[Rfam]
RNA: DUF3800-I RNA
RNA sequence: UUAUGUUGCAAGUACAUGAUAGUACAUUUGCUACAGUAAGGGACCGAUAAUAGUUAUUAAGCGUACUAAAUAAGUGCGCCGGCCUUACUGGGAGGGUCUCCGUACAUUGAGGCCUUUUUUUGUUGCCA
Dot-bracket structure: .......(((((((........))).).)))..((((((....((((((.....)))...((((((.......)))))))))..))))))((((((((((........))))))))))..........